[Rfam]
RNA sequence: CUAUCUGUACCCUGUAGAACCGAAUUUGUGUGAACAGCUAAAAAUCGCAAAUUAGCCUCUACAGGAAUAUAUGGG
Numbered sequence: 001c002u003a004u005c006u007g008u009a010c011c012c013u014g015u016a017g018a019a020c021c022g023a024a025u026u027u028g029u030g031u032g033a034a035c036a037g038c039u040a041a042a043a044a045u046c047g048c049a050a051a052u053u054a055g056c057c058u059c060u061a062c063a064g065g066a067a068u069a070u071a072u073g074g075g
Base pairs, nucleotide, nucleotide: 002073003072004071006069007068010065011064016060017059018058021055023053024052025051026050027049028048029047030046